The family of this 76-nucleotide RNA from Psychromonas ingrahamii is "c-di-GMP-I riboswitch aptamer".
A search with the family's covariance model found it, with a score of 58 bits.
NCBI's taxonomy places the organism under Bacteria, Gammaproteobacteria, Alteromonadales, Psychromonadaceae, Psychromonas ingrahamii.
Rfam links the family to the GO term cyclic-di-GMP binding.
[Rfam]
RNA sequence: GAAAGUCAUUCGCAAACUUGGGGAAAUUCAAGGACGCAAAACUAUAGGGCCUGUAAAAUGGCAGCCAGUUGCCAAA
Number, nucleotide and partner (000 for none) at each position: 001g000002a000003a000004a000005g000006u000007c000008a000009u000010u000011c000012g037013c036014a000015a000016a000017c032018u031019u030020g029021g028022g027023g000024a000025a000026a000027u022028u021029c020030a019031a018032g017033g000034a000035c000036g013037c012038a000039a000040a070041a069042c068043u067044a000045u000046a000047g066048g065049g062050c061051c060052u000053g000054u000055a000056a000057a000058a000059u000060g051061g050062c049063a000064g000065c048066c047067a043068g042069u041070u040071g000072c000073c000074a000075a000076a000